[Rfam]
RNA sequence: UCCCCUACAGUUUCCCGACUCUCGUUUUCCGCAAGGAAUGUCUACCGCAGACCCUCUUCCAAGGCUUAGUCGGCCGCAAUAUGCCGCUCCCGAGCCUGUUCCAGGACCUCGUUGAAUGCUGCAGCUGGAUCUAUUGCGGCCAGUCUCCGUCUGGCACCCGGACGGCCAAGUCUAGCAGGGGGAACGAGCUUCGGAACUUAACCCUAAGCAUACAU
Numbered sequence: 001u002c003c004c005c006u007a008c009a010g011u012u013u014c015c016c017g018a019c020u021c022u023c024g025u026u027u028u029c030c031g032c033a034a035g036g037a038a039u040g041u042c043u044a045c046c047g048c049a050g051a052c053c054c055u056c057u058u059c060c061a062a063g064g065c066u067u068a069g070u071c072g073g074c075c076g077c078a079a080u081a082u083g084c085c086g087c088u089c090c091c092g093a094g095c096c097u098g099u100u101c102c103a104g105g106a107c108c109u110c111g112u113u114g115a116a117u118g119c120u121g122c123a124g125c126u127g128g129a130u131c132u133a134u135u136g137c138g139g140c141c142a143g144u145c146u147c148c149g150u151c152u153g154g155c156a157c158c159c160g161g162a163c164g165g166c167c168a169a170g171u172c173u174a175g176c177a178g179g180g181g182g183a184a185c186g187a188g189c190u191u192c193g194g195a196a197c198u199u200a201a202c203c204c205u206a207a208g209c210a211u212a213c214a215u
Stems, first nucleotide, its partner, number of pairs: 009198003015194004
Shown here is a 215-nucleotide part of an RNA from Trichoderma longibrachiatum, a member of the family "Ascomycota telomerase RNA". Rfam 15.1 lists 475 matches to the family in 456 species. For this family Rfam cites "The common ancestral core of vertebrate and fungal telomerase RNAs" (Qi et al., Nucleic Acids Res, 2013). Taxonomically the source falls in Trichoderma longibrachiatum (Eukaryota, Opisthokonta, Dikarya, leotiomyceta).